[Rfam]
The record is a 363-nucleotide sequence from Bacillus sp. FJAT-49736, which matches "transfer-messenger RNA" in Rfam. NCBI's taxonomy places the organism under Bacteria, Bacilli, Caryophanales, Bacillaceae, Bacillus.
RNA sequence: GGGGACGUUACGGAUUCGACAGGGGUAGUUUGAGCUUGGGUUGCGAGUCGAGGGGGUCGGCCUCGUUAAAACGCCAAAGCCAAUAAUAACUGGCAAAACUAACAAAAACCUCGCUUUCGCAGCGUAAGCUAGCGUAGCGGAUCCUCCCUCCAUCGCCCAUGUGGUAGGGUCAGGGUCUCAACUUUAGUGGGCUACGCCGGACGUCCUCCGCCUGGGGACUAUGGAAGAGAACAAUCAGGCUAGCGCUCCGGGCGCCUGUCGAUAGGCAGAUGGAGUCGCGAAGCGCGAAUAUAUCGACUACACUCGUAGACGCUUAAGUGGCAAUAUUUCUGGACGUGGGUUCGAUUCCCACCGUCUCCACCA
Numbered sequence: 001g002g003g004g005a006c007g008u009u010a011c012g013g014a015u016u017c018g019a020c021a022g023g024g025g026u027a028g029u030u031u032g033a034g035c036u037u038g039g040g041u042u043g044c045g046a047g048u049c050g051a052g053g054g055g056g057u058c059g060g061c062c063u064c065g066u067u068a069a070a071a072c073g074c075c076a077a078a079g080c081c082a083a084u085a086a087u088a089a090c091u092g093g094c095a096a097a098a099c100u101a102a103c104a105a106a107a108a109c110c111u112c113g114c115u116u117u118c119g120c121a122g123c124g125u126a127a128g129c130u131a132g133c134g135u136a137g138c139g140g141a142u143c144c145u146c147c148c149u150c151c152a153u154c155g156c157c158c159a160u161g162u163g164g165u166a167g168g169g170u171c172a173g174g175g176u177c178u179c180a181a182c183u184u185u186a187g188u189g190g191g192c193u194a195c196g197c198c199g200g201a202c203g204u205c206c207u208c209c210g211c212c213u214g215g216g217g218a219c220u221a222u223g224g225a226a227g228a229g230a231a232c233a234a235u236c237a238g239g240c241u242a243g244c245g246c247u248c249c250g251g252g253c254g255c256c257u258g259u260c261g262a263u264a265g266g267c268a269g270a271u272g273g274a275g276u277c278g279c280g281a282a283g284c285g286c287g288a289a290u291a292u293a294u295c296g297a298c299u300a301c302a303c304u305c306g307u308a309g310a311c312g313c314u315u316a317a318g319u320g321g322c323a324a325u326a327u328u329u330c331u332g333g334a335c336g337u338g339g340g341u342u343c344g345a346u347u348c349c350c351a352c353c354g355u356c357u358c359c360a361c362c363a
Base pairs, nucleotide, nucleotide: 001359002358003357004356005355006354007353020332021331022330023329024328025327026326027325029323034319035318036317037316038315039314040313041312044306045305046304047303048302049065050064051063052062053061115137116136118134119133120132122130140177141176142175143174144173145172146169147168148167149166150164151163152162153161155192156191157190158189159188160187197224198223199222201220204217205216210241212239213238215236243279244278245276246275247274248273249272250271254267255266256265258298259297260296261295262292263291264290336352337351338350339349340348
Rfam describes the family as follows. Bacterial tmRNA, also known as 10Sa RNA or SsrA, is named for its dual tRNA and mRNA-like properties. Its role is to liberate the mRNA from a stalled ribosome. To accomplish this part of the tmRNA is used as a reading frame that ends in a translation stop signal. The broken mRNA is replaced in the ribosome by the tmRNA and translation of the tmRNA leads to addition of a proteolysis tag to the incomplete protein enabling recognition by a protease. Recently a number of permuted tmRNA genes have been found encoded in two parts. tmRNAs have been identified in eubacteria and some chloroplasts but are absent from archaeal and eukaryote nuclear genomes. The family's RNA type in Rfam is non-coding RNA gene.